[Rfam]
RNA sequence: UCCAAUCUUCGGGGCAGGGUGCAAUUCCCGACCGGCGGUAACGUGCAUGAUUGCACGAAGUCCGCGACCCAUAAAAGCGUUAUGCUUAAAUGGUUGACCUGGUGUGAGUCCAGGACCGACAGUUAAAGUCUGGAUAAGAGAAGAUGUCG
Numbered sequence: 001u002c003c004a005a006u007c008u009u010c011g012g013g014g015c016a017g018g019g020u021g022c023a024a025u026u027c028c029c030g031a032c033c034g035g036c037g038g039u040a041a042c043g044u045g046c047a048u049g050a051u052u053g054c055a056c057g058a059a060g061u062c063c064g065c066g067a068c069c070c071a072u073a074a075a076a077g078c079g080u081u082a083u084g085c086u087u088a089a090a091u092g093g094u095u096g097a098c099c100u101g102g103u104g105u106g107a108g109u110c111c112a113g114g115a116c117c118g119a120c121a122g123u124u125a126a127a128g129u130c131u132g133g134a135u136a137a138g139a140g141a142a143g144a145u146g147u148c149g
Stems, first nucleotide, its partner, number of pairs: 005145006017029003031129002033118002035065004060116002069093004098114005120132003
Shown here is a 149-nucleotide RNA sequence from Oceanobacillus zhaokaii, a member of the family "FMN riboswitch aptamer (RFN element)". The source organism's lineage runs through Bacteria, Bacillati, Caryophanales, Bacillaceae and Oceanobacillus. It scores 112 bits against the family's covariance model.